[Rfam]
salivarius-1 RNA: a 56-nucleotide sequence from Ligilactobacillus salivarius. The family's RNA type in Rfam is small RNA.

RNA sequence: GCCUUGUAUCCACAUGAUUUGAGCUGGUCUUACGUUUUGAGGACGUAGCAAGGCAU
Dot-bracket structure: (((((((..((((........[).))).{.((((((.]..})))))))))))))..
Numbered sequence: 001g002c003c004u005u006g007u008a009u010c011c012a013c014a015u016g017a018u019u020u021g022a023g024c025u026g027g028u029c030u031u032a033c034g035u036u037u038u039g040a041g042g043a044c045g046u047a048g049c050a051a052g053g054c055a056u
Stems, first nucleotide, its partner, number of pairs: 001054007010027003013023001022038001029041001031047006